[Rfam]
Notes: This 157-nucleotide RNA sequence from Firmicutes bacterium AF22-6AC belongs to the Rfam family "Clostridiales-1 RNA". It is annotated as a small RNA. Taxonomically the source falls in Bacillota (Bacteria, Bacillati). The family's consensus secondary structure is taken from published work.

RNA sequence: UGAUAAACUCAGCCAUGGACAGAAUGCGUGACUGCUUGCAGGCAAAGCAUUCUGUCCAUGAGCUGAGUGAACGAACAUGAGCAAGAAGGACGAAAGUCCGGAAUGCGAAUGGUCGUUGCGAUUUCGAGAGUGCGGAGCACGGAGAAAUCGUAUAUCA
Numbered sequence: 001u002g003a004u005a006a007a008c009u010c011a012g013c014c015a016u017g018g019a020c021a022g023a024a025u026g027c028g029u030g031a032c033u034g035c036u037u038g039c040a041g042g043c044a045a046a047g048c049a050u051u052c053u054g055u056c057c058a059u060g061a062g063c064u065g066a067g068u069g070a071a072c073g074a075a076c077a078u079g080a081g082c083a084a085g086a087a088g089g090a091c092g093a094a095a096g097u098c099c100g101g102a103a104u105g106c107g108a109a110u111g112g113u114c115g116u117u118g119c120g121a122u123u124u125c126g127a128g129a130g131u132g133c134g135g136a137g138c139a140c141g142g143a144g145a146a147a148u149c150g151u152a153u154a155u156c157a
Stems, first nucleotide, its partner, number of pairs: 001157002004154002008067004014060014029045001030043001032041003071116004076111003081106003088099004119150007130140004